This 71-nucleotide RNA from Nicotiana sylvestris belongs to the Rfam family "MIR6151 microRNA precursor family". Its family is annotated with RISC complex and miRNA-mediated post-transcriptional gene silencing in the Gene Ontology. The base pairs follow the family's consensus structure, which was predicted with RNAalifold. Lineage of the source: Eukaryota > Spermatophyta > eudicotyledons > Nicotianeae > Nicotiana.
[Rfam]
RNA sequence: AAUCGUUGGAUGAGUGUGAGGCUCUGGAUUGAUAUCAUUCAAUCCGAGCCCCACAUUCAUUAGGUGCUCGU
Numbered sequence: 001a002a003u004c005g006u007u008g009g010a011u012g013a014g015u016g017u018g019a020g021g022c023u024c025u026g027g028a029u030u031g032a033u034a035u036c037a038u039u040c041a042a043u044c045c046g047a048g049c050c051c052c053a054c055a056u057u058c059a060u061u062a063g064g065u066g067c068u069c070g071u
Stems, first nucleotide, its partner, number of pairs: 004066001006064002009061010020050003025046008